[Rfam]
RNA sequence: UAUUGUGCUGUGAUGAUACUUAUGUGGACUAGAGUUUCUGAUCUGGGAAUCUUCACCCAGAAUCUGAUUACAACCCCUUGGCUGUCUGAGCACACAA
Numbered sequence: 001u002a003u004u005g006u007g008c009u010g011u012g013a014u015g016a017u018a019c020u021u022a023u024g025u026g027g028a029c030u031a032g033a034g035u036u037u038c039u040g041a042u043c044u045g046g047g048a049a050u051c052u053u054c055a056c057c058c059a060g061a062a063u064c065u066g067a068u069u070a071c072a073a074c075c076c077c078u079u080g081g082c083u084g085u086c087u088g089a090g091c092a093c094a095c096a097a
Stems, first nucleotide, its partner, number of pairs: 001097001004094005037067002042062001043060005